[Rfam]
Rfam assigns this 54-nucleotide sequence to the family "chrB-b RNA".
RNA sequence: UGGGGAUUUAGCAGAUUCCCCGCUGUCUAUAAGACGCCUCGCGUCCAAAUCUGC
Numbered sequence: 001u002g003g004g005g006a007u008u009u010a011g012c013a014g015a016u017u018c019c020c021c022g023c024u025g026u027c028u029a030u031a032a033g034a035c036g037c038c039u040c041g042c043g044u045c046c047a048a049a050u051c052u053g054c
Base pairs, nucleotide, nucleotide: 001022002021003020004019005018006017011054012053013052014051015050033045034044035043036042037041

It is one of the family's seed sequences. The base pairs follow the family's consensus structure, which is taken from published work. It is annotated as a cis-regulatory element.